Shown here is a 65-nucleotide RNA from Papilio machaon, a member of the family "mir-2 microRNA precursor family". The organism belongs to Papilio, within Eukaryota. The family's consensus secondary structure was predicted with PFOLD. On this family, see Lee and Ambros, Science 2001: "An extensive class of small RNAs in Caenorhabditis elegans". A search with the family's covariance model found it, with a score of 52 bits. Rfam 15.1 lists 918 matches to the family in 280 species.
Nucleotides: 065
Stems, first nucleotide, its partner, number of pairs: 006058008015049003019045004025041003
Number, partner (000 for none) and nucleotide at each position: 001000u002000a003000g004000c005000c006058u007057g008056u009055c010054a011053a012052a013051g014000c015049g016048g017047c018000g019045g020044u021043g022042a023000g024000a025041u026040g027039u028000c029000a030000a031000g032000u033000a034000g035000u036000c037000u038000c039027a040026u041025a042022u043021c044020a045019c046000a047017g048016c049015c050000a051013c052012u053011u054010u055009g056008a057007u058006g059000u060000g061000g062000u063000c064000g065000g